RNA: SAM riboswitch aptamer (S box leader)
RNA sequence: UUCUUAUCCAGAGAGGUGAAGGGACUGGCCCGAUGAAACCUCAGCAACCAUAUUUUGUAUGGUGCUAAUUCCAGCAAAGCAUAGCUUUGGAAGAUAAGAA
Numbered sequence: 001u002u003c004u005u006a007u008c009c010a011g012a013g014a015g016g017u018g019a020a021g022g023g024a025c026u027g028g029c030c031c032g033a034u035g036a037a038a039c040c041u042c043a044g045c046a047a048c049c050a051u052a053u054u055u056u057g058u059a060u061g062g063u064g065c066u067a068a069u070u071c072c073a074g075c076a077a078a079g080c081a082u083a084g085c086u087u088u089g090g091a092a093g094a095u096a097a098g099a100a
Stems, first nucleotide, its partner, number of pairs: 001100008013042005021031003025074004043066004048062002050058003070092001075089006
Dot-bracket structure: ((((((((....(((((...(((.[[[[)))......)))))((((.(((((...)))..))))))...(]]]]((((((...))))))..)))))))))